[Rfam]
RNA: Glycine riboswitch aptamer
RNA sequence: GUGAACCACUCUGGAGAGACCGGUUGAAUCCGGCGCCGAAGGGGCACGAAGCGCAGACCUCCUCAGGGUCGGCUUCCAAAACUCUCAGGCAAAAGGACAGAGGGGCGAGC
Numbered sequence: 001g002u003g004a005a006c007c008a009c010u011c012u013g014g015a016g017a018g019a020c021c022g023g024u025u026g027a028a029u030c031c032g033g034c035g036c037c038g039a040a041g042g043g044g045c046a047c048g049a050a051g052c053g054c055a056g057a058c059c060u061c062c063u064c065a066g067g068g069u070c071g072g073c074u075u076c077c078a079a080a081a082c083u084c085u086c087a088g089g090c091a092a093a094a095g096g097a098c099a100g101a102g103g104g105g106c107g108a109g110c
Stems, first nucleotide, its partner, number of pairs: 006105002009102005020033004035090003038086002042084003048077001